[Rfam]
The family of this 143-nucleotide RNA from Paramicrobacterium agarici is "FMN riboswitch aptamer (RFN element)". The family's consensus secondary structure is taken from published work.

RNA sequence: AACGUGCUCCGGGGUCGGUGAGAGUCCGAACCGGCGGUGAAAGUCCGCGACCCUCCCUCGGGAGGUUGAGCCGGUGAAAUUCCGGCACCGACGGUUAUGGAUCGCCACACGGCGAUUCGAGUCCGGAAGGGAGGAGGCACGUC
Numbered sequence: 001a002a003c004g005u006g007c008u009c010c011g012g013g014g015u016c017g018g019u020g021a022g023a024g025u026c027c028g029a030a031c032c033g034g035c036g037g038u039g040a041a042a043g044u045c046c047g048c049g050a051c052c053c054u055c056c057c058u059c060g061g062g063a064g065g066u067u068g069a070g071c072c073g074g075u076g077a078a079a080u081u082c083c084g085g086c087a088c089c090g091a092c093g094g095u096u097a098u099g100g101a102u103c104g105c106c107a108c109a110c111g112g113c114g115a116u117u118c119g120a121g122u123c124c125g126g127a128a129g130g131g132a133g134g135a136g137g138c139a140c141g142u143c
Base pairs, nucleotide, nucleotide: 003141004140005139006138007137008135009134010133016028017027018026032090033089034048035047036046037045043088044087052065053064070086071085072084073083074082092125093124094123